Shown here is a 242-nucleotide RNA sequence from Paraburkholderia ribeironis, a member of the family "Group II catalytic intron D1-D4-6".
[Rfam]
RNA sequence: AGAGUCAUACGUUGAAGGCCUAGCCAGCCACGGCGGCCCCGAGUCAUGCGUGUGUACCCGUGAGGGUGCAGGCGAAGCGUUGACAGGGGUACGCCCGGGCCGGGUAUUGAGCCGCGAAAUAAACUCCUCGUGGCAUGAGCUACGAGAUGAUCGGGGUGCCGAGGCGCUGGAUCUACGCCGAAGGCCACACCGACGCUGCCGCAUUGGCGAGGCAGUGCCGGACCCCGCGCGGUCAGAGACCC
Dot-bracket structure: .........(((((..(((.[.[[..))).))))).((((..(((((((((.(((((((....))))))).)))...)).)))).))))..................((.((((((...................................(((((((((..((((.........))))...)))....(((.(((((((......]].]))))))).)))))))))))))))).)......
The literature on the family includes a 2001 paper in Trends Genet by Bonen and Vogel, "The ins and outs of group II introns". A search with the family's covariance model found it, with a score of 178 bits.